nhaA-I RNA: a 56-nucleotide sequence from Frateuria aurantia. The family's RNA type in Rfam is riboswitch. From the family's description: Acidobacteria, Alphaproteobacteria, Betaproteobacteria and Gammaproteobacteria, Verrucomicrobia, cand. division NC10.

RNA sequence: GGGUGUCUUGGCCAUGGUGGCGCAAGACAGGUCGAUGCGCAGGUCGGGCCGCCGCG
Numbered sequence: 001g002g003g004u005g006u007c008u009u010g011g012c013c014a015u016g017g018u019g020g021c022g023c024a025a026g027a028c029a030g031g032u033c034g035a036u037g038c039g040c041a042g043g044u045c046g047g048g049c050c051g052c053c054g055c056g
Base pairs, nucleotide, nucleotide: 005028006027007026008025009024010023011021038056039055040054042053043052044051
Dot-bracket structure: ....(((((((.........).)))))).........(((.(((......))))))